ASdes TB sRNA: a 68-nucleotide sequence from Mycobacterium shinjukuense. Taxonomically the source falls in Mycobacterium (Bacteria, Bacillati, Actinomycetota, Mycobacteriaceae). The literature on the family includes a 2009 paper in Mol Microbiol by Arnvig and Young, "Identification of small RNAs in Mycobacterium tuberculosis". The match comes from Rfam's covariance-model search (74 bits). Rfam classes the family as a small RNA.
RNA sequence: AACUCAACGGGAUCGACCGCGCGGGUCACCACCAGAUAGUCGCGCAGCGCGGUGCUGUGCCUGUUCUC
Numbered sequence: 001a002a003c004u005c006a007a008c009g010g011g012a013u014c015g016a017c018c019g020c021g022c023g024g025g026u027c028a029c030c031a032c033c034a035g036a037u038a039g040u041c042g043c044g045c046a047g048c049g050c051g052g053u054g055c056u057g058u059g060c061c062u063g064u065u066c067u068c
Stems, first nucleotide, its partner, number of pairs: 004063001008059002011030001013028001015027004035056001037054002040052005